[Rfam]
RNA sequence: GGUUCCUUUAUGACGGUGUCAUCCCAGUGCUUGACACUGGGAUCCAGGAAUUUUAUUAAGUUGGUAAGCAUAAAAGUAGCCGUUUUAUGUUAAAAUACAACGUUUUGAUGAUUAUGAAAAAGCUGGAUUCCAGUGUCAAGCGCUGGAAUGACACCACCUGCAAAUU
Numbered sequence: 001g002g003u004u005c006c007u008u009u010a011u012g013a014c015g016g017u018g019u020c021a022u023c024c025c026a027g028u029g030c031u032u033g034a035c036a037c038u039g040g041g042a043u044c045c046a047g048g049a050a051u052u053u054u055a056u057u058a059a060g061u062u063g064g065u066a067a068g069c070a071u072a073a074a075a076g077u078a079g080c081c082g083u084u085u086u087a088u089g090u091u092a093a094a095a096u097a098c099a100a101c102g103u104u105u106u107g108a109u110g111a112u113u114a115u116g117a118a119a120a121a122g123c124u125g126g127a128u129u130c131c132a133g134u135g136u137c138a139a140g141c142g143c144u145g146g147a148a149u150g151a152c153a154c155c156a157c158c159u160g161c162a163a164a165u166u
Stems, first nucleotide, its partner, number of pairs: 011162001017153006024146024

The family of this 166-nucleotide RNA sequence from Trichonephila inaurata is "Wolbachia sRNA 46". Lineage of the source: Eukaryota > Bilateria > Arachnida > Araneae > Trichonephila inaurata. The match comes from Rfam's covariance-model search (80 bits).